A member of the RNA family "c-di-GMP-I riboswitch aptamer" from Sulfurovum sp. AR, 75 nucleotides long.
The family's consensus secondary structure is taken from published work.
Taxonomically the source falls in Sulfurovum (Bacteria, Pseudomonadati, Epsilonproteobacteria, Campylobacterales).
The match comes from Rfam's covariance-model search (59 bits).
RNA sequence: UUAUUGUUGUGCCAAACUUGUUGCGAAGCAAGGACGGAAAGCCUCCGGUCUCAAGUAGAUAGCGGGGUUGCCAUA
Numbered sequence: 001u002u003a004u005u006g007u008u009g010u011g012c013c014a015a016a017c018u019u020g021u022u023g024c025g026a027a028g029c030a031a032g033g034a035c036g037g038a039a040a041g042c043c044u045c046c047g048g049u050c051u052c053a054a055g056u057a058g059a060u061a062g063c064g065g066g067g068u069u070g071c072c073a074u075a
Base pairs, nucleotide, nucleotide: 012037013036017032018031019030020029021028022027040069041068042067043066045065046064047063048060049059050058
Dot-bracket structure: ...........((...((((((....))))))...))..((((.((((((.......)))..)))))))......